[Rfam]
RNA sequence: UAUUAGGUUGGUGCAAAAGUCAUUGCGGUUUUUGCCAUUAAGAAUAAUAUCAAAAACCACAGUGACUUUUGCACCAACCUAAUA
Numbered sequence: 001u002a003u004u005a006g007g008u009u010g011g012u013g014c015a016a017a018a019g020u021c022a023u024u025g026c027g028g029u030u031u032u033u034g035c036c037a038u039u040a041a042g043a044a045u046a047a048u049a050u051c052a053a054a055a056a057c058c059a060c061a062g063u064g065a066c067u068u069u070u071g072c073a074c075c076a077a078c079c080u081a082a083u084a
Stems, first nucleotide, its partner, number of pairs: 001084025027058008037048004

Rfam assigns this 84-nucleotide RNA sequence from Pongo abelii to the family "mir-548 microRNA precursor family".
Taxonomically the source falls in Pongo (Eukaryota, Vertebrata, Tetrapoda, Boreoeutheria).
Rfam links the family to the GO terms RISC complex and miRNA-mediated post-transcriptional gene silencing.
A search with the family's covariance model found it, with a score of 90 bits.
Rfam 15.1 lists 3,009 matches to the family in 27 species.
The base pairs follow the family's consensus structure, which was predicted with WAR.
For this family Rfam cites "Ultra-high throughput sequencing-based small RNA discovery and discrete statistical biomarker analysis in a collection of cervical tumours and matched controls" (Witten et al., BMC Biol, 2010).